This 65-nucleotide RNA sequence from Salmonella enterica belongs to the Rfam family "DnaX ribosomal frameshifting element". The sequence is in the family's curated seed alignment. Its family is annotated with translational frameshifting in the Gene Ontology. This family represents a ribosomal frameshifting element found in the mRNA of the dnaX gene in E. coli. The dnaX gene has two encoded products tau and gamma which are produced in a 1:1 ratio. The gamma protein is synthesised due to programmed frameshifting and is shorter than tau. The two products of the dnaX gene are DNA polymerase III subunits. It is annotated as a frameshift element.
Nucleotides: 065
Base pairs, nucleotide, nucleotide: 032061033060034059035058036057037056039054040053041051042050043049
Number, partner (000 for none) and nucleotide at each position: 001000c002000g003000c004000a005000g006000g007000g008000a009000g010000u011000a012000a013000c014000c015000a016000a017000a018000a019000c020000a021000a022000a023000a024000a025000a026000g027000a028000g029000u030000g031000a032061a033060c034059c035058g036057g037056c038000a039054g040053c041051c042050g043049c044000a045000u046000c047000c048000c049043g050042c051041g052000c053040g054039c055000g056037g057036c058035c059034g060033g061032u062000g063000a064000a065000u